[Rfam]
RNA sequence: UUAGAUCAAAUUGACUCUAGUAGGGAGUCCUUUUUUAUGGUGACUCCCUAACGGAGUCAGAUUGAUUUCGAU
Numbered sequence: 001u002u003a004g005a006u007c008a009a010a011u012u013g014a015c016u017c018u019a020g021u022a023g024g025g026a027g028u029c030c031u032u033u034u035u036u037a038u039g040g041u042g043a044c045u046c047c048c049u050a051a052c053g054g055a056g057u058c059a060g061a062u063u064g065a066u067u068u069c070g071a072u
Stems, first nucleotide, its partner, number of pairs: 011060008021050009
Rfam assigns this 72-nucleotide sequence from Pseudolycoriella hygida to the family "mir-929 microRNA precursor family". The organism belongs to Pseudolycoriella, within Eukaryota. The base pairs follow the family's consensus structure, which was predicted with RNAalifold. The literature on the family includes a 2010 paper in Genome Biol Evol by Marco et al., "Functional shifts in insect microRNA evolution". Gene Ontology terms of the family: miRNA-mediated post-transcriptional gene silencing and RISC complex.